[Rfam]
Nucleotides: 102
Stems, first nucleotide, its partner, number of pairs: 018088001020086006029049002032046004058078007
Number, partner (000 for none) and nucleotide at each position: 001000a002000a003000u004000u005000a006000a007000a008000u009000u010000u011000a012000a013000u014000a015000u016000a017000g018088g019000a020086a021085u022084c023083a024082u025081a026000u027000a028000a029049u030048u031000u032046u033045g034044a035043c036000a037000a038000u039000a040000a041000g042000g043035g044034u045033c046032a047000u048030g049029a050000g051000u052000u053000u054000c055000u056000a057000c058078c059077a060076g061075a062074a063073u064072a065000c066000c067000g068000u069000a070000a071000a072064u073063g074062u075061u076060c077059u078058g079000a080000c081025u082024a083023u084022g085021a086020u087000a088018c089000u090000a091000u092000u093000c094000u095000u096000g097000a098000u099000u100000a101000u102000u

Shown here is a 102-nucleotide sequence from Asaccharospora irregularis, a member of the family "Purine riboswitch aptamer". The source organism's lineage runs through Bacteria, Bacillati, Peptostreptococcales, Peptostreptococcaceae and Asaccharospora irregularis.